[Rfam]
The family of this 141-nucleotide RNA sequence from Vulpes vulpes is "Small nucleolar RNA SNORA57". The literature on the family includes a 2003 paper in Nucleic Acids Res by Vitali et al., "Identification of 13 novel human modification guide RNAs". The source organism's lineage runs through Eukaryota, Dipnotetrapodomorpha, Mammalia, Eutheria and Vulpes. It is annotated as an H/ACA-box small nucleolar RNA. U99 belongs to the H/ACA class of snoRNAs which are thought to guide the sites of modification of uridines to pseudouridines, the target for this family is unknown. Pairs were carried over by alignment from the consensus structure, which was predicted with PFOLD.
RNA sequence: CCUCCUUUUCUUGGCGGGGGUUGGGUGUGCAAUUCCUGUAAUGUAUGGGGAGGCAGAAAGGGCUCUGGCCCCCUCGGCGUCAUGUCUUUAGAGCCCACGGCUUCCAGUCCGCUGGUUCUAUCCUCAAGCGCUGGGACACGA
Numbered sequence: 001c002c003u004c005c006u007u008u009u010c011u012u013g014g015c016g017g018g019g020g021u022u023g024g025g026u027g028u029g030c031a032a033u034u035c036c037u038g039u040a041a042u043g044u045a046u047g048g049g050g051a052g053g054c055a056g057a058a059a060g061g062g063c064u065c066u067g068g069c070c071c072c073c074u075c076g077g078c079g080u081c082a083u084g085u086c087u088u089u090a091g092a093g094c095c096c097a098c099g100g101c102u103u104c105c106a107g108u109c110c111g112c113u114g115g116u117u118c119u120a121u122c123c124u125c126a127a128g129c130g131c132u133g134g135g136a137c138a139c140g141a
Stems, first nucleotide, its partner, number of pairs: 001053005015038006022031002075133006094115002098111003